[Rfam]
RNA sequence: GGUUGGGUAAAUUUUAUAAUUUACUUUCAAGCAAUUGGUUUCUGGGGUGGGAAACU
Numbered sequence: 001g002g003u004u005g006g007g008u009a010a011a012u013u014u015u016a017u018a019a020u021u022u023a024c025u026u027u028c029a030a031g032c033a034a035u036u037g038g039u040u041u042c043u044g045g046g047g048u049g050g051g052a053a054a055c056u
Stems, first nucleotide, its partner, number of pairs: 003030003006025006037056007

Source information
The family of this 56-nucleotide sequence from Clostridium saccharoperbutylacetonicum is "Na+ riboswitch aptamer (DUF1646)". Gene Ontology terms of the family: regulation of gene expression and sodium ion binding. The source organism's lineage runs through Bacteria, Bacillati, Clostridiaceae, Clostridium and Clostridium saccharoperbutylacetonicum N1-4.